[Rfam]
RNA sequence: UAUCUGGCUGUUGAGGCUUAUGGGUUACACGUGGACCAAGCCCGCCCGAAGCCGAUAUGGCCAGCGCAGAGCGGGAAAAAUCAAAAUCAGU
Numbered sequence: 001u002a003u004c005u006g007g008c009u010g011u012u013g014a015g016g017c018u019u020a021u022g023g024g025u026u027a028c029a030c031g032u033g034g035a036c037c038a039a040g041c042c043c044g045c046c047c048g049a050a051g052c053c054g055a056u057a058u059g060g061c062c063a064g065c066g067c068a069g070a071g072c073g074g075g076a077a078a079a080a081u082c083a084a085a086a087u088c089a090g091u
Stems, first nucleotide, its partner, number of pairs: 004064008015053005021048005033043002065073003